Rfam assigns this 93-nucleotide RNA sequence from Papaver somniferum to the family "Small nucleolar RNA R44/J54/Z268 family".
The family's consensus secondary structure was predicted with PFOLD.
It scores 79 bits against the family's covariance model.

RNA sequence: UUUGCAAGUGAUGAUAGAACAGACAGGGACAUCAGAAAUCCUAUUUCAGGAUAGUAAAAUGUUGACACGUCUUGGGAAUCUCUCUGAUGCAUU
Numbered sequence: 001u002u003u004g005c006a007a008g009u010g011a012u013g014a015u016a017g018a019a020c021a022g023a024c025a026g027g028g029a030c031a032u033c034a035g036a037a038a039u040c041c042u043a044u045u046u047c048a049g050g051a052u053a054g055u056a057a058a059a060u061g062u063u064g065a066c067a068c069g070u071c072u073u074g075g076g077a078a079u080c081u082c083u084c085u086g087a088u089g090c091a092u093u
Base pairs, nucleotide, nucleotide: 003091004090005089006088